Rfam assigns this 161-nucleotide sequence from Saimiri boliviensis to the family "U1 spliceosomal RNA".
RNA sequence: AGAACAACCUGGCAGGAGAGAUCCCAUGAUCAUGAAGGUGGUUUUCCCAGAGCUAGGCUUAUCCAUUGUACUCCAGAUGUGCUGACACCUGUGGUUUUCCCAAUUGUGGGAAGCUGGACUGCAUAACUUGUAGUGGGGAACUACGUUCAUGUUCUGUCCUG
Dot-bracket structure: ...........(((((.((((..((((..........)))).)))).)((.....(((.((((............)))).))).....)).((((((.((.......))))).)))..))))............((((.(..(((....)))..).)))).

Annotation:
Rfam classes the family as a spliceosomal small nuclear RNA.